[Rfam]
RNA sequence: UCUGAGGCUUGAUUAAUGAUUCGCACUGUUCGCCUACUCGGUCUACUACUACUCAACGCAUCUCUGCGCGGUAGACUGUUGGGCGGCAUUCAGCGUUAAGUUGAAUCAAGUCACAAGAGAAAACGAAACCCGCGCACUGCGCGGGUUUUUUU
Numbered sequence: 001u002c003u004g005a006g007g008c009u010u011g012a013u014u015a016a017u018g019a020u021u022c023g024c025a026c027u028g029u030u031c032g033c034c035u036a037c038u039c040g041g042u043c044u045a046c047u048a049c050u051a052c053u054c055a056a057c058g059c060a061u062c063u064c065u066g067c068g069c070g071g072u073a074g075a076c077u078g079u080u081g082g083g084c085g086g087c088a089u090u091c092a093g094c095g096u097u098a099a100g101u102u103g104a105a106u107c108a109a110g111u112c113a114c115a116a117g118a119g120a121a122a123a124c125g126a127a128a129c130c131c132g133c134g135c136a137c138u139g140c141g142c143g144g145g146u147u148u149u150u151u152u
Stems, first nucleotide, its partner, number of pairs: 004114001006112005013099006026086007034078001049074005057068004125149011
Shown here is a 152-nucleotide RNA sequence from Atlantibacter hermannii, a member of the family "Leucine operon leader". Rfam classes the family as a cis-regulatory leader. For this family Rfam cites "Attenuation in amino acid biosynthetic operons" (Kolter and Yanofsky, Annu Rev Genet, 1982). Lineage of the source: Bacteria > Pseudomonadati > Pseudomonadota > Gammaproteobacteria > Atlantibacter hermannii. At least 6 amino acid operons are known to be regulated by attenuation. In each a leader sequence of 150-200 bp is found upstream of the first gene in the operon. This leader sequence can assume two different secondary structures known as the terminator and the anti-terminator structure. In each case the leader also codes for very short peptide sequence that is rich in the end product amino acid of the operon. The terminator structure is recognised as a termination signal for RNA polymerase and the operon is not transcribed. This structure forms when the cell has an excess of the regulatory amino acid and ribosome movement over the leader transcript is not impeded. When there is a deficiency of the charged tRNA of the regulatory amino acid the ribosome translating the leader peptide stalls and the antiterminator structure can form. This allows RNA polymerase to transcribe the operon. In the Rfam alignment the consensus structure is of the terminator. The alternative consensus structure is the antiterminator structure. The family's consensus secondary structure is taken from published work. Rfam links the family to the GO term leucine biosynthetic process.